[Rfam]
RNA sequence: UGCCGCGACAAGCGGUCCGGGCGCCCUUCGGGGGCCCGGCGGAGACGGGCGCCGGAGGUGUCCGACGCCUGCUCGUACCCAUCUUGCUCAGUGGAGGAUUUGGCUAUGAGGA
Numbered sequence: 001u002g003c004c005g006c007g008a009c010a011a012g013c014g015g016u017c018c019g020g021g022c023g024c025c026c027u028u029c030g031g032g033g034g035c036c037c038g039g040c041g042g043a044g045a046c047g048g049g050c051g052c053c054g055g056a057g058g059u060g061u062c063c064g065a066c067g068c069c070u071g072c073u074c075g076u077a078c079c080c081a082u083c084u085u086g087c088u089c090a091g092u093g094g095a096g097g098a099u100u101u102g103g104c105u106a107u108g109a110g111g112a
Stems, first nucleotide, its partner, number of pairs: 017039006024033002046071006053064003072110006079103003084098002087096003

Source information
The record is a 112-nucleotide RNA from Bradyrhizobium japonicum, which matches "Repression of heat shock gene expression (ROSE) element" in Rfam. Lineage of the source: Bacteria > Pseudomonadati > Pseudomonadota > Nitrobacteraceae > Bradyrhizobium. By type it is an RNA thermoregulator. This family represents a 5' UTR cis-regulatory element found in heat shock mRNAs and is known as the ROSE (repression of heat shock gene expression) element. The ROSE element is a negative regulator of heat shock gene expression. The secondary structure is thought to be regulated by temperature. This regulation blocks access to the ribosome binding site under normal conditions. During heat shock however, the structure changes freeing the ribosome binding site and allowing expression to occur. The literature on the family includes a 2001 paper in Nucleic Acids Res by Nocker et al., "A mRNA-based thermosensor controls expression of rhizobial heat shock genes". Rfam 15.1 lists 381 matches to the family in 262 species.